The record is a 128-nucleotide RNA sequence from Corynebacterium ciconiae, which matches "atpB RNA" in Rfam. Rfam's curators put it in the seed alignment. By type it is a cis-regulatory element. Taxonomically the source falls in Corynebacterium ciconiae (Bacteria, Actinomycetota, Mycobacteriales, Corynebacteriaceae).

RNA sequence: CAUUGGCCGUCACGAGAUGUGCGACGGAGUCCGGUACGGCCAAAGAAAAUCAGACGUCCAUCGCACCGAAGCUGCUCUGUACAGGGAGUUUCGGCCCGAACACGGGAGAGAACGCUGAGCGUUACAAC
Numbered sequence: 001c002a003u004u005g006g007c008c009g010u011c012a013c014g015a016g017a018u019g020u021g022c023g024a025c026g027g028a029g030u031c032c033g034g035u036a037c038g039g040c041c042a043a044a045g046a047a048a049a050u051c052a053g054a055c056g057u058c059c060a061u062c063g064c065a066c067c068g069a070a071g072c073u074g075c076u077c078u079g080u081a082c083a084g085g086g087a088g089u090u091u092c093g094g095c096c097c098g099a100a101c102a103c104g105g106g107a108g109a110g111a112a113c114g115c116u117g118a119g120c121g122u123u124a125c126a127a128c
Stems, first nucleotide, its partner, number of pairs: 001045001003043008066094008075086004